[Rfam]
RNA sequence: GGAAAUCAGAGGACGGAACGGGCACCCGUCGCCCAUUGUUAGGAGAUGCGGGAAUGUCACCCCACCAGUUUCA
Numbered sequence: 001g002g003a004a005a006u007c008a009g010a011g012g013a014c015g016g017a018a019c020g021g022g023c024a025c026c027c028g029u030c031g032c033c034c035a036u037u038g039u040u041a042g043g044a045g046a047u048g049c050g051g052g053a054a055u056g057u058c059a060c061c062c063c064a065c066c067a068g069u070u071u072c073a
Base pairs, nucleotide, nucleotide: 002072003071004070005069006068009066012030013029014028015027016026021058022057023056024055032043048065050063051062052061
The family of this 73-nucleotide RNA sequence is "skipping-rope RNA". The sequence is in the family's curated seed alignment. Rfam classes the family as a small RNA.